A member of the RNA family "Mason-Pfizer monkey virus packaging signal" from Octodon degus, 291 nucleotides long. Rfam classes the family as a cis-regulatory element.

[Rfam]
RNA sequence: UGGUGCCCAACGUAUGGGGCACCUGGUAUGGGGGAUUCAGUGACGGAACCAUCCGAGAGCGCGUGUAAGAGAGAAACUAAAAGAGGCCUGUGCUGCAGUUGCCUGCUGCAACGUCUGAACCUCGGUAAGUGGACAGAACACCUUCCCCCUUCCCUUUGGCAAUGGGACAGGCAUUAAGUAAACAUGAGAUAUUUGUAGAAAACUUGAGUAAAGCAUUAAAGGUGUGAGAAGUAAAGGUUAAAAUUAAGGAUUUGUGUCAAUAUUUUGAAUAUAUUAAGCAAGUUUGCCCAU
Number, nucleotide and partner (000 for none) at each position: 001u000002g000003g000004u000005g000006c034007c033008c032009a000010a000011c000012g029013u028014a027015u000016g000017g000018g000019g000020c000021a000022c000023c000024u000025g000026g000027u014028a013029u012030g000031g000032g008033g007034g006035a000036u000037u000038c000039a000040g052041u051042g050043a000044c000045g000046g000047a000048a000049c000050c042051a041052u040053c000054c000055g000056a000057g000058a000059g000060c000061g000062c000063g000064u000065g000066u000067a000068a000069g000070a000071g000072a000073g000074a000075a000076a000077c000078u000079a000080a000081a000082a000083g123084a122085g121086g000087c117088c000089u000090g000091u113092g000093c000094u110095g109096c108097a107098g106099u000100u000101g000102c000103c000104u000105g000106c098107u097108g096109c095110a094111a000112c000113g091114u000115c000116u000117g087118a000119a000120c000121c085122u084123c083124g000125g000126u000127a000128a000129g000130u169131g168132g000133a000134c000135a000136g000137a000138a000139c000140a000141c000142c000143u000144u000145c000146c000147c000148c000149c000150u000151u000152c000153c000154c000155u000156u000157u000158g000159g000160c000161a000162a000163u000164g000165g000166g000167a000168c131169a130170g000171g000172c000173a000174u000175u218176a217177a216178g214179u213180a000181a000182a000183c000184a000185u000186g000187a000188g000189a000190u000191a000192u000193u000194u000195g000196u000197a000198g000199a000200a000201a000202a000203c000204u000205u000206g000207a000208g000209u000210a000211a000212a000213g179214c178215a000216u177217u176218a175219a000220a000221g000222g000223u000224g000225u267226g266227a265228g264229a263230a000231g261232u260233a000234a000235a253236g252237g251238u250239u249240a000241a000242a000243a000244u000245u000246a000247a000248g000249g239250a238251u237252u236253u235254g000255u000256g000257u000258c000259a000260a232261u231262a000263u229264u228265u227266u226267g225268a000269a000270u000271a000272u000273a000274u000275u000276a291277a000278g289279c000280a000281a000282g000283u000284u000285u000286g000287c000288c000289c278290a000291u276
The match comes from Rfam's covariance-model search (88 bits).